[Rfam]
RNA sequence: CACUCCUCUUUCUGCCCCACAUCCUUUUUUUGCUUCCAUAGGAUAGUGGGUUCUGGUAUGGAGAAGAAUGAGCCCAUUUCAACGUUCUUAGUCCGCCUUUUGAUACAUCUAGGGCUUUGUAAUUUUGGUGGGAUCGUGUCUAGGAUCACUUAAUUCCCGCGAGGGUCUGUGCUUUCCAUCUAUUAGGAUUGGACAGUGGUGGUUGAGACUACAUUU
Numbered sequence: 001c002a003c004u005c006c007u008c009u010u011u012c013u014g015c016c017c018c019a020c021a022u023c024c025u026u027u028u029u030u031u032g033c034u035u036c037c038a039u040a041g042g043a044u045a046g047u048g049g050g051u052u053c054u055g056g057u058a059u060g061g062a063g064a065a066g067a068a069u070g071a072g073c074c075c076a077u078u079u080c081a082a083c084g085u086u087c088u089u090a091g092u093c094c095g096c097c098u099u100u101u102g103a104u105a106c107a108u109c110u111a112g113g114g115c116u117u118u119g120u121a122a123u124u125u126u127g128g129u130g131g132g133a134u135c136g137u138g139u140c141u142a143g144g145a146u147c148a149c150u151u152a153a154u155u156c157c158c159g160c161g162a163g164g165g166u167c168u169g170u171g172c173u174u175u176c177c178a179u180c181u182a183u184u185a186g187g188a189u190u191g192g193a194c195a196g197u198g199g200u201g202g203u204u205g206a207g208a209c210u211a212c213a214u215u216u
Base pairs, nucleotide, nucleotide: 003063004062005061006060016050017049018048019047021044022043023042024041025040073132074131075130076129077128080127081126082125084123085122086121087119090116091115092114093113094112138209139208140207141206144204145203146202147201148200149199150198
RNA: Small nucleolar RNA snR43